Description: Rfam assigns this 61-nucleotide sequence from Python bivittatus to the family "Selenocysteine insertion sequence 1". Rfam classes the family as a cis-regulatory element. About the family: The incorporation of selenocysteine into a protein sequence is directed by an in-frame UGA codon (usually a stop codon) within the coding region of the mRNA. Selenoprotein mRNAs contain a conserved secondary structure in the 3' UTR that is required for the distinction of UGA stop from UGA selenocysteine. Taxonomically the source falls in Python (Eukaryota, Opisthokonta, Sarcopterygii, Lepidosauria).
RNA sequence: AUGGUGUUUAUGAUGUGGCUAGAUUAAAGCCUUCAGGAUGUCUAGUUGCUGAUGUUGCCAU
Numbered sequence: 001a002u003g004g005u006g007u008u009u010a011u012g013a014u015g016u017g018g019c020u021a022g023a024u025u026a027a028a029g030c031c032u033u034c035a036g037g038a039u040g041u042c043u044a045g046u047u048g049c050u051g052a053u054g055u056u057g058c059c060a061u
Stems, first nucleotide, its partner, number of pairs: 001061004015049010030037002